RNA sequence: GCCACAUGAAAGACAAGGUAGUGAGACGCGAAUAAACGCGGACAUCUCACUACCCAUGUCUUUCACGCAGAA
Numbered sequence: 001g002c003c004a005c006a007u008g009a010a011a012g013a014c015a016a017g018g019u020a021g022u023g024a025g026a027c028g029c030g031a032a033u034a035a036a037c038g039c040g041g042a043c044a045u046c047u048c049a050c051u052a053c054c055c056a057u058g059u060c061u062u063u064c065a066c067g068c069a070g071a072a
Base pairs, nucleotide, nucleotide: 008064009063010062011061012060013059014058015057017054018053020051021050022049023048024047025046026045028043

Rfam assigns this 72-nucleotide RNA from Aphidius gifuensis to the family "mir-71 microRNA precursor family". Pairs were carried over by alignment from the consensus structure, which was predicted with RNAalifold. The organism belongs to Aphidius, within Eukaryota.